[Rfam]
RNA: FMN riboswitch aptamer (RFN element)
Organism: Brucella intermedia
RNA sequence: UCCAGUUCUCAGGGCGGGGUGAAACUCCCCCCCACCGGCGCUGACGGGUCAAGACCCGAAGCCCGCGAGCGCCUGUCACGGCAAAUGUGUCAGGGUCAGCAGAUUCGGUGCAAUUCCGAAGCCGACGGUCAUAGUCCGGAUGAAAGAGAACGAGG
Numbered sequence: 001u002c003c004a005g006u007u008c009u010c011a012g013g014g015c016g017g018g019g020u021g022a023a024a025c026u027c028c029c030c031c032c033c034a035c036c037g038g039c040g041c042u043g044a045c046g047g048g049u050c051a052a053g054a055c056c057c058g059a060a061g062c063c064c065g066c067g068a069g070c071g072c073c074u075g076u077c078a079c080g081g082c083a084a085a086u087g088u089g090u091c092a093g094g095g096u097c098a099g100c101a102g103a104u105u106c107g108g109u110g111c112a113a114u115u116c117c118g119a120a121g122c123c124g125a126c127g128g129u130c131a132u133a134g135u136c137c138g139g140a141u142g143a144a145a146g147a148g149a150a151c152g153a154g155g
Base pairs, nucleotide, nucleotide: 005151006150007149008148009147010146017032018031019030034135035134036124037123038066039065040064061122062121069100070099104120105119106118107117108116126138127137128136